[Rfam]
RNA sequence: CUCUGGGCCUGCCAUCCAAGGGCUCAGGGCGUGAAAGAG
Dot-bracket structure: ((((((((((.........))))))))))..........
L31-Firmicutes ribosomal protein leader: a 39-nucleotide RNA. On this family, see Eckert and Weinberg, BMC Microbiol 2020: "Discovery of 20 novel ribosomal leader candidates in bacteria and archaea". By type it is a cis-regulatory leader.